[Rfam]
RNA sequence: CUCUUAUCAAGAGAGGCGGAGGGACGAGCCCGAUGAAGCCCGGCAACCGACUUUUAACUCUGUUAAAAACACGGUGCUAAUUCUCGCAGCAUAAUUGCUGACAGAUAAGAG
Number, nucleotide and partner (000 for none) at each position: 001c111002u110003c109004u108005u107006a106007u105008c104009a000010a000011g000012a000013g041014a000015g040016g039017c038018g000019g000020a000021g031022g030023g029024a000025c086026g085027a084028g083029c023030c022031c021032g000033a000034u000035g000036a000037a000038g017039c016040c015041c013042g078043g077044c076045a075046a000047c074048c073049g070050a000051c000052u067053u066054u065055u000056a000057a000058c000059u000060c000061u000062g000063u000064u000065a054066a053067a052068a000069a000070c049071a000072c000073g048074g047075u045076g044077c043078u042079a000080a000081u000082u103083c028084u027085c026086g025087c100088a099089g098090c097091a096092u000093a000094a000095u000096u091097g090098c089099u088100g087101a000102c000103a082104g008105a007106u006107a005108a004109g003110a002111g001
RNA: SAM riboswitch aptamer (S box leader)
Organism: Exobacillus caeni